[Rfam]
RNA sequence: UAUAAAAUAGGUGAUGGAGUUCACCAUAACUGCUAUAUGCUAAUGACUCCUACAAAAAA
Numbered sequence: 001u002a003u004a005a006a007a008u009a010g011g012u013g014a015u016g017g018a019g020u021u022c023a024c025c026a027u028a029a030c031u032g033c034u035a036u037a038u039g040c041u042a043a044u045g046a047c048u049c050c051u052a053c054a055a056a057a058a059a
Stems, first nucleotide, its partner, number of pairs: 010025004016050006032040002
The family of this 59-nucleotide RNA from Lactovum miscens is "Fluoride riboswitch aptamer (crcB RNA motif)". The match comes from Rfam's covariance-model search (58 bits). The source organism's lineage runs through Bacteria, Bacillati, Bacilli, Lactobacillales and Lactovum. The family's consensus secondary structure is taken from published work.